RNA: caulobacter sRNA CC2171
RNA sequence: CAACAGCUGAAAGGAGGUGGUCUGAUGUCUCAUUGUCAAAUGCCGCAUGCGGUCGAAAUCGUGAGCGCAGCCUCCGCGGGGGUCCGCGCGUAACGUCAGGCCGCCUUGGCUAGACAAUGGAAAGGCCGUUCGGGGCGACCCGGGCGGCCU
Numbered sequence: 001c002a003a004c005a006g007c008u009g010a011a012a013g014g015a016g017g018u019g020g021u022c023u024g025a026u027g028u029c030u031c032a033u034u035g036u037c038a039a040a041u042g043c044c045g046c047a048u049g050c051g052g053u054c055g056a057a058a059u060c061g062u063g064a065g066c067g068c069a070g071c072c073u074c075c076g077c078g079g080g081g082g083u084c085c086g087c088g089c090g091u092a093a094c095g096u097c098a099g100g101c102c103g104c105c106u107u108g109g110c111u112a113g114a115c116a117a118u119g120g121a122a123a124g125g126c127c128g129u130u131c132g133g134g135g136c137g138a139c140c141c142g143g144g145c146g147g148c149c150u
Base pairs, nucleotide, nucleotide: 016023017022031119032118033117034116035115036114037113044061045060048057050055066090067089068088096109097108098107099106100105123150124149125148126147127146128145129144130143131142132141133140134139